Description: Rfam assigns this 105-nucleotide sequence from Clostridium grantii to the family "TPP riboswitch aptamer (THI element)".

[Rfam]
RNA sequence: UAAAUUUGCUAGGGGUGCUUAUUAUAAGCUGAGACUGAGAUUUUUUUCUAACCCUCAUAACCUGAUUUAGAUAAUUCUAACGUAGGGAAGUACAGUUAAUGUUGA
Numbered sequence: 001u002a003a004a005u006u007u008g009c010u011a012g013g014g015g016u017g018c019u020u021a022u023u024a025u026a027a028g029c030u031g032a033g034a035c036u037g038a039g040a041u042u043u044u045u046u047u048c049u050a051a052c053c054c055u056c057a058u059a060a061c062c063u064g065a066u067u068u069a070g071a072u073a074a075u076u077c078u079a080a081c082g083u084a085g086g087g088a089a090g091u092a093c094a095g096u097u098a099a100u101g102u103u104g105a
Stems, first nucleotide, its partner, number of pairs: 007092004011055004017029005037048004061086004067080004
Notes
It scores 74 bits against the family's covariance model. Lineage of the source: Bacteria > Bacillati > Clostridia > Eubacteriales > Clostridium grantii. Pairs were carried over by alignment from the consensus structure, which is taken from published work.